nuoG RNA: a 42-nucleotide sequence from [Pantoea] beijingensis. It scores 36 bits against the family's covariance model. The family's consensus secondary structure is taken from published work.
[Rfam]
RNA sequence: GAAUUGUGUUUAACGCUUGUCUGACGACGAGCCUUACGGAAG
Numbered sequence: 001g002a003a004u005u006g007u008g009u010u011u012a013a014c015g016c017u018u019g020u021c022u023g024a025c026g027a028c029g030a031g032c033c034u035u036a037c038g039g040a041a042g
Stems, first nucleotide, its partner, number of pairs: 015032007